Rfam assigns this 149-nucleotide RNA sequence from Pseudomonas sp. EGD-AK9 to the family "proV RNA". Rfam classes the family as a small RNA. It is one of the family's seed sequences. The organism belongs to Pseudomonas, within Bacteria.
RNA sequence: CGUCGCUGCCGCCACUGCCCAGCAGGGCGGCAGACCAGAGCCCACACCUCUGGACCGAAGAACAGACAGCGCUGGUGCCCUCCCGACGGGCGCCGGACCAACAAGAAAUUUCGGAUGCACGCAUGCGCCAGGACGGCGUAUGAACCCCC
Numbered sequence: 001c002g003u004c005g006c007u008g009c010c011g012c013c014a015c016u017g018c019c020c021a022g023c024a025g026g027g028c029g030g031c032a033g034a035c036c037a038g039a040g041c042c043c044a045c046a047c048c049u050c051u052g053g054a055c056c057g058a059a060g061a062a063c064a065g066a067c068a069g070c071g072c073u074g075g076u077g078c079c080c081u082c083c084c085g086a087c088g089g090g091c092g093c094c095g096g097a098c099c100a101a102c103a104a105g106a107a108a109u110u111u112c113g114g115a116u117g118c119a120c121g122c123a124u125g126c127g128c129c130a131g132g133a134c135g136g137c138g139u140a141u142g143a144a145c146c147c148c149c
Stems, first nucleotide, its partner, number of pairs: 006033006013027001015025002035053006122142008